[Rfam]
RNA sequence: AGCUUUGCGCAGUGGCAGUAUCGUAGCCAAUGAGGUUUAUCCGAGGCGCGAUUAUUGCUAAUUGAUACACACGGAAUCAUAUCAUUUAUUCAAUACCUACCACGUUAGGUUUUAAUCCAAGUGUUGUCUACCUUUCCUAUGA
Numbered sequence: 001a002g003c004u005u006u007g008c009g010c011a012g013u014g015g016c017a018g019u020a021u022c023g024u025a026g027c028c029a030a031u032g033a034g035g036u037u038u039a040u041c042c043g044a045g046g047c048g049c050g051a052u053u054a055u056u057g058c059u060a061a062u063u064g065a066u067a068c069a070c071a072c073g074g075a076a077u078c079a080u081a082u083c084a085u086u087u088a089u090u091c092a093a094u095a096c097c098u099a100c101c102a103c104g105u106u107a108g109g110u111u112u113u114a115a116u117c118c119a120a121g122u123g124u125u126g127u128c129u130a131c132c133u134u135u136c137c138u139a140u141g142a
Stems, first nucleotide, its partner, number of pairs: 020052005026047003034042002073118003077114001079112001081110003132141001134139001

The record is a 142-nucleotide RNA from Canis lupus, which matches "U4 spliceosomal RNA" in Rfam. Rfam's curators write: U4 small nuclear RNA (U4 snRNA) is a component of the major U2-dependent spliceosome.